[Rfam]
RNA sequence: AAAGGCCUGUGAUGAAUAAAACUAUUGCCUACAUUGUCUGAUUAUAUCUAACAUGAAGAAAAAAAUCAUCUACUUCUGAGGCCUUU
Numbered sequence: 001a002a003a004g005g006c007c008u009g010u011g012a013u014g015a016a017u018a019a020a021a022c023u024a025u026u027g028c029c030u031a032c033a034u035u036g037u038c039u040g041a042u043u044a045u046a047u048c049u050a051a052c053a054u055g056a057a058g059a060a061a062a063a064a065a066u067c068a069u070c071u072a073c074u075u076c077u078g079a080g081g082c083c084u085u086u
Base pairs, nucleotide, nucleotide: 001086002085004083005082006081007080

Rfam assigns this 86-nucleotide sequence from Lactuca saligna to the family "Small nucleolar RNA SNORD34". Rfam classes the family as a C/D-box small nucleolar RNA. Pairs were carried over by alignment from the consensus structure, which was predicted with PFOLD. Rfam's curators write: snoRNA U34 is found in intron 5 of the ribosomal protein L13a gene in humans. The family has 14 seed sequences and 1,319 matches in Rfam 15.1. A reference for the family is Galardi et al. (2002), "Purified box C/D snoRNPs are able to reproduce site-specific 2'-O-methylation of target RNA in vitro", Mol Cell Biol. A search with the family's covariance model found it, with a score of 54 bits. Gene Ontology terms of the family: RNA processing and nucleolus.